[Rfam]
RNA sequence: UAAUAAAGCCAUGAGAAUGACAACCUUGUAACCUGGUCAGGAUAGAGAUAUAGCAGCCAUAUCGAGAAGUGUCGUGUCUUAUGGUUUUUAUAUACA
Numbered sequence: 001u002a003a004u005a006a007a008g009c010c011a012u013g014a015g016a017a018u019g020a021c022a023a024c025c026u027u028g029u030a031a032c033c034u035g036g037u038c039a040g041g042a043u044a045g046a047g048a049u050a051u052a053g054c055a056g057c058c059a060u061a062u063c064g065a066g067a068a069g070u071g072u073c074g075u076g077u078c079u080u081a082u083g084g085u086u087u088u089u090a091u092a093u094a095c096a
Base pairs, nucleotide, nucleotide: 003091004090005089006088007087009084010083011082012081013080014079017075018074019073020072021071022070025066026065027064028063034059035058036057037056042051043050044049
RNA: Bacterial small signal recognition particle RNA
Organism: Metamycoplasma cloacale